[Rfam]
RNA sequence: GAAGCAGGCCAGGCAGCCGCUGGCUGGCACCUUCGGGUGCCGGCGGGAGGAAGGUCCGGACUCCACAGAGCAGGGUGACGGUUAACGGCCGUCCGCUGAAAGCCGCAAGGUAUAAGGCGAGGAAUAGGGCCACAGAGACGAGCGUAUUAAGUUACGGUGAAACGCGGUAACCUCCACCUGGAGCAAUUCCAAAUAGGCACGCGUUGAUGUUGCUCGCGGAGCGUGCGGGUAGGAAGCUUGAGCGCUGGAGUAAUCCAGCGCCUAGAGGAAUGGCUGUCAUAGGGGCGUCCCGCAAGGGAGACCACUACACAGAAUCCGGCCUAUCGGCCUGCUUUACAU
Numbered sequence: 001g002a003a004g005c006a007g008g009c010c011a012g013g014c015a016g017c018c019g020c021u022g023g024c025u026g027g028c029a030c031c032u033u034c035g036g037g038u039g040c041c042g043g044c045g046g047g048a049g050g051a052a053g054g055u056c057c058g059g060a061c062u063c064c065a066c067a068g069a070g071c072a073g074g075g076u077g078a079c080g081g082u083u084a085a086c087g088g089c090c091g092u093c094c095g096c097u098g099a100a101a102g103c104c105g106c107a108a109g110g111u112a113u114a115a116g117g118c119g120a121g122g123a124a125u126a127g128g129g130c131c132a133c134a135g136a137g138a139c140g141a142g143c144g145u146a147u148u149a150a151g152u153u154a155c156g157g158u159g160a161a162a163c164g165c166g167g168u169a170a171c172c173u174c175c176a177c178c179u180g181g182a183g184c185a186a187u188u189c190c191a192a193a194u195a196g197g198c199a200c201g202c203g204u205u206g207a208u209g210u211u212g213c214u215c216g217c218g219g220a221g222c223g224u225g226c227g228g229g230u231a232g233g234a235a236g237c238u239u240g241a242g243c244g245c246u247g248g249a250g251u252a253a254u255c256c257a258g259c260g261c262c263u264a265g266a267g268g269a270a271u272g273g274c275u276g277u278c279a280u281a282g283g284g285g286c287g288u289c290c291c292g293c294a295a296g297g298g299a300g301a302c303c304a305c306u307a308c309a310c311a312g313a314a315u316c317c318g319g320c321c322u323a324u325c326g327g328c329c330u331g332c333u334u335u336a337c338a339u
Stems, first nucleotide, its partner, number of pairs: 001335010011324001012278007020047002023044008052322003056319005061183004068215004073179005078092005093121001094119004122174002127172002129168003143156004187235004197226006208218003242261008
Shown here is a 339-nucleotide RNA from Massilia sp. BSC265, a member of the family "Bacterial RNase P class A". Rfam classes the family as a ribozyme. The organism belongs to Massilia, within Bacteria.